[Rfam]
RNA: MIR535 microRNA precursor family
RNA sequence: UGUGACAAGGAGAGAGAGCACGCUUGUCAUCACCCAUGAACGGAUCAUGGUUGUUUACAGGUGUGCUCUCUCUUCUUGUCAUA
Numbered sequence: 001u002g003u004g005a006c007a008a009g010g011a012g013a014g015a016g017a018g019c020a021c022g023c024u025u026g027u028c029a030u031c032a033c034c035c036a037u038g039a040a041c042g043g044a045u046c047a048u049g050g051u052u053g054u055u056u057a058c059a060g061g062u063g064u065g066c067u068c069u070c071u072c073u074u075c076u077u078g079u080c081a082u083a
Stems, first nucleotide, its partner, number of pairs: 003081005009075002013071002016068001018066010